Background:
Rfam assigns this 108-nucleotide sequence from Olsenella sp. KH1P3 to the family "SAM riboswitch aptamer (S box leader)".
RNA sequence: CCCGCGUGGGUGCAUAGAGCUGAGGGACCGAGCCCUUUGAAGCUCCGGCAACCAGCCAGUUGGUAUGGUGCCAAUUCUCGGCAGGCCUCAAUGCCUGGAAGACGGGGG
Numbered sequence: 001c002c003c004g005c006g007u008g009g010g011u012g013c014a015u016a017g018a019g020c021u022g023a024g025g026g027a028c029c030g031a032g033c034c035c036u037u038u039g040a041a042g043c044u045c046c047g048g049c050a051a052c053c054a055g056c057c058a059g060u061u062g063g064u065a066u067g068g069u070g071c072c073a074a075u076u077c078u079c080g081g082c083a084g085g086c087c088u089c090a091a092u093g094c095c096u097g098g099a100a101g102a103c104g105g106g107g108g
Stems, first nucleotide, its partner, number of pairs: 001108003005104003012046001017045004024035003029081001032077001047072004052068002054064001056062001076100001082097005
A search with the family's covariance model found it, with a score of 46 bits. NCBI's taxonomy places the organism under Bacteria, Bacillati, Coriobacteriia, Atopobiaceae, Olsenella.